[Rfam]
The record is a 147-nucleotide RNA from Brucella melitensis, which matches "Alphaproteobacterial sRNA ar9" in Rfam. The pairing is the family consensus, mapped onto this sequence. Taxonomically the source falls in Brucella melitensis bv. 2 (Bacteria, Alphaproteobacteria, Brucella, Brucella melitensis).
RNA sequence: AUAAGAGCAACAACGGAAUAAAACCGUUGGUUUCACGCGGUGAAGUCUUGGGAGGAUGGAUCCAGGCGCGGUUUCCGCAGCCGCCAGUAAAAUGGAAAACGGAUCGAACGCGUAUUCAAUUGGCAGGGCGAAAGCCUUGCUUUUUUU
Numbered sequence: 001a002u003a004a005g006a007g008c009a010a011c012a013a014c015g016g017a018a019u020a021a022a023a024c025c026g027u028u029g030g031u032u033u034c035a036c037g038c039g040g041u042g043a044a045g046u047c048u049u050g051g052g053a054g055g056a057u058g059g060a061u062c063c064a065g066g067c068g069c070g071g072u073u074u075c076c077g078c079a080g081c082c083g084c085c086a087g088u089a090a091a092a093u094g095g096a097a098a099a100c101g102g103a104u105c106g107a108a109c110g111c112g113u114a115u116u117c118a119a120u121u122g123g124c125a126g127g128g129c130g131a132a133a134g135c136c137u138u139g140c141u142u143u144u145u146u147u
Stems, first nucleotide, its partner, number of pairs: 003147004011029006036112004045057004059105005065082003068078003084095003122141008